Source information: The family of this 100-nucleotide sequence from Thermanaerosceptrum fracticalcis is "Glycine riboswitch aptamer". The family has 44 seed sequences and 9,425 matches in Rfam 15.1. Taxonomically the source falls in Thermanaerosceptrum (Bacteria, Bacillati, Bacillota, Peptococcaceae). This family represents the bacterial glycine riboswitch.

RNA sequence: UGAAGCCUGGCGGGAGAGCCUCCCCAGGAGCACCGAAGGAGCAAGGCCGGAAGUUACGAUUCCGGUUGAAUCUCUCAGGUCCCAGUACCGCAGGCCGACG
Numbered sequence: 001u002g003a004a005g006c007c008u009g010g011c012g013g014g015a016g017a018g019c020c021u022c023c024c025c026a027g028g029a030g031c032a033c034c035g036a037a038g039g040a041g042c043a044a045g046g047c048c049g050g051a052a053g054u055u056a057c058g059a060u061u062c063c064g065g066u067u068g069a070a071u072c073u074c075u076c077a078g079g080u081c082c083c084a085g086u087a088c089c090g091c092a093g094g095c096c097g098a099c100g
Stems, first nucleotide, its partner, number of pairs: 005095005011090003020030004032080003035076002039074003045067008
Dot-bracket structure: ....(((((.(((......((((...)))).(((((..(((...((((((((.......))))))))....))))).))).......)))))))).....